[Rfam]
RNA sequence: GAUAAUGUGGGCGAGAAACCCACACGCCGAAAGACCAAGGUUUCCCCGGCUAUGCUAAUCAGCCGGGGGUCAGUCGGGACCUAACACGAACCCGAAAGGGGCAGUGGAUGGACAAGCGGUUAAUAUUCCGCUACCCGCAAUACGACAAAAGUGACGGGGCACCGGAGUUGGUGCGCACAGACGGAAUUGUGCGUUGAACCUUCGGGGAUAGUACACCAAGGCCACGGCCGCGGUGAUAAUCCAGCGUAGGUGCCUCCAAGAAAAGCGAGUAUUGCGGCCCGUACCGUAAACCGACACAGGUGGUCGGGAUGAGUAUUCUAAGGCGCU
Numbered sequence: 001g002a003u004a005a006u007g008u009g010g011g012c013g014a015g016a017a018a019c020c021c022a023c024a025c026g027c028c029g030a031a032a033g034a035c036c037a038a039g040g041u042u043u044c045c046c047c048g049g050c051u052a053u054g055c056u057a058a059u060c061a062g063c064c065g066g067g068g069g070u071c072a073g074u075c076g077g078g079a080c081c082u083a084a085c086a087c088g089a090a091c092c093c094g095a096a097a098g099g100g101g102c103a104g105u106g107g108a109u110g111g112a113c114a115a116g117c118g119g120u121u122a123a124u125a126u127u128c129c130g131c132u133a134c135c136c137g138c139a140a141u142a143c144g145a146c147a148a149a150a151g152u153g154a155c156g157g158g159g160c161a162c163c164g165g166a167g168u169u170g171g172u173g174c175g176c177a178c179a180g181a182c183g184g185a186a187u188u189g190u191g192c193g194u195u196g197a198a199c200c201u202u203c204g205g206g207g208a209u210a211g212u213a214c215a216c217c218a219a220g221g222c223c224a225c226g227g228c229c230g231c232g233g234u235g236a237u238a239a240u241c242c243a244g245c246g247u248a249g250g251u252g253c254c255u256c257c258a259a260g261a262a263a264a265g266c267g268a269g270u271a272u273u274g275c276g277g278c279c280c281g282u283a284c285c286g287u288a289a290a291c292c293g294a295c296a297c298a299g300g301u302g303g304u305c306g307g308g309a310u311g312a313g314u315a316u317u318c319u320a321a322g323g324c325g326c327u
Stems, first nucleotide, its partner, number of pairs: 006024006025325004033305004039285002044068006053061002075281004080111002085106003091100003115132005135277009151266002156256004163249001167245005173194006195226002199221004206214001291300002307319003

This 327-nucleotide part of an RNA from Flagellimonas eckloniae belongs to the Rfam family "Bacterial large subunit ribosomal RNA". The base pairs follow the family's consensus structure, which is taken from published work. A search with the family's covariance model found it, with a score of 2753 bits.